[Rfam]
RNA sequence: UCCCUGCUUUCCAUCAGCGGGGGUUACUGAAGAGGCACACCUUCAUUGCCGGAAGUGCGGUUGGGAUCUUCCCUCCAAUCCAUGGCAGACAAAGCCGAACCCAUACCGUGUUUGCGGUGUUGGUUCAUCAUUUGCGCAUCGAGCGCUGCUAGGGAUCC
Numbered sequence: 001u002c003c004c005u006g007c008u009u010u011c012c013a014u015c016a017g018c019g020g021g022g023g024u025u026a027c028u029g030a031a032g033a034g035g036c037a038c039a040c041c042u043u044c045a046u047u048g049c050c051g052g053a054a055g056u057g058c059g060g061u062u063g064g065g066a067u068c069u070u071c072c073c074u075c076c077a078a079u080c081c082a083u084g085g086c087a088g089a090c091a092a093a094g095c096c097g098a099a100c101c102c103a104u105a106c107c108g109u110g111u112u113u114g115c116g117g118u119g120u121u122g123g124u125u126c127a128u129c130a131u132u133u134g135c136g137c138a139u140c141g142a143g144c145g146c147u148g149c150u151a152g153g154g155a156u157c158c
Base pairs, nucleotide, nucleotide: 001023002022003021004020005019006018007017008016034050035049036048037047057137058136059135084096085095104119105118106117107116108115
RNA: speF leader
Organism: Rhizobium sp. BK251